[Rfam]
The family of this 371-nucleotide RNA from Aeromicrobium flavum is "transfer-messenger RNA".
RNA sequence: GGGGCUGAUCGGUUUCGACUGUGGUCGUUCGAUCCAAGAGAAGCGGGUAGAGAAGGCAACGUCAUCUCUCAAACGAUCGUUGCAAACCCAUAAGUGCCGAUUCCAAGCGCACUGACUUCGCCCUCGCUGCCUGACAGCGACUUGCGGAGGGUGGACCCGGGAGCGUCCUCGUCCCGGAUCGUCCAUCUCAUCUAGAGGACUUGCUGAUCUGACCGUGUAGCGCGAUCAGAUCGGGACUUUUUCGCUACUGAGCCUGUCGGUGACGCGUUCGUCCGAGCACCGGGGCCGAGAAAAGCGCCAGACGAACUGCACCCGGAGAAGUCUUGGUUCAGCGUCAUAGGACCCGGGUUCGAUUCCCGGCAGCUCCACAG
Numbered sequence: 001g002g003g004g005c006u007g008a009u010c011g012g013u014u015u016c017g018a019c020u021g022u023g024g025u026c027g028u029u030c031g032a033u034c035c036a037a038g039a040g041a042a043g044c045g046g047g048u049a050g051a052g053a054a055g056g057c058a059a060c061g062u063c064a065u066c067u068c069u070c071a072a073a074c075g076a077u078c079g080u081u082g083c084a085a086a087c088c089c090a091u092a093a094g095u096g097c098c099g100a101u102u103c104c105a106a107g108c109g110c111a112c113u114g115a116c117u118u119c120g121c122c123c124u125c126g127c128u129g130c131c132u133g134a135c136a137g138c139g140a141c142u143u144g145c146g147g148a149g150g151g152u153g154g155a156c157c158c159g160g161g162a163g164c165g166u167c168c169u170c171g172u173c174c175c176g177g178a179u180c181g182u183c184c185a186u187c188u189c190a191u192c193u194a195g196a197g198g199a200c201u202u203g204c205u206g207a208u209c210u211g212a213c214c215g216u217g218u219a220g221c222g223c224g225a226u227c228a229g230a231u232c233g234g235g236a237c238u239u240u241u242u243c244g245c246u247a248c249u250g251a252g253c254c255u256g257u258c259g260g261u262g263a264c265g266c267g268u269u270c271g272u273c274c275g276a277g278c279a280c281c282g283g284g285g286c287c288g289a290g291a292a293a294a295g296c297g298c299c300a301g302a303c304g305a306a307c308u309g310c311a312c313c314c315g316g317a318g319a320a321g322u323c324u325u326g327g328u329u330c331a332g333c334g335u336c337a338u339a340g341g342a343c344c345c346g347g348g349u350u351c352g353a354u355u356c357c358c359g360g361c362a363g364c365u366c367c368a369c370a371g
Base pairs, nucleotide, nucleotide: 001367002366003365004364005363006362007361019340020339021338022337023336024335025334028331031330032329034327035326036325037324038323039322044315045314046313047312048311049069050068051067052066053065056083057082058081059080060079061078129142150187151186152185153184154183155182157177159175160174161173162172165200166199167198168197169196170195204234205233206232207231208230209229210228211227212226215249252286253285254284255283258282259281260280264275265274267307268306269305270304271303272302273301344360345359346358347357348356
The base pairs follow the family's consensus structure, which is taken from published work.
For this family Rfam cites "Phylogenetic analysis of tmRNA secondary structure" (Williams and Bartel, RNA, 1996).
Its family is annotated with RNA catabolic process in the Gene Ontology.
Rfam describes the family as follows. Bacterial tmRNA, also known as 10Sa RNA or SsrA, is named for its dual tRNA and mRNA-like properties. Its role is to liberate the mRNA from a stalled ribosome. To accomplish this part of the tmRNA is used as a reading frame that ends in a translation stop signal. The broken mRNA is replaced in the ribosome by the tmRNA and translation of the tmRNA leads to addition of a proteolysis tag to the incomplete protein enabling recognition by a protease.